[Rfam]
RNA sequence: CCUUGACAGUUACAAAAAGUAACUGACAUUUGCCAAGACAAGGAGAUUGACAUG
Numbered sequence: 001c002c003u004u005g006a007c008a009g010u011u012a013c014a015a016a017a018a019g020u021a022a023c024u025g026a027c028a029u030u031u032g033c034c035a036a037g038a039c040a041a042g043g044a045g046a047u048u049g050a051c052a053u054g
Stems, first nucleotide, its partner, number of pairs: 002042004007025005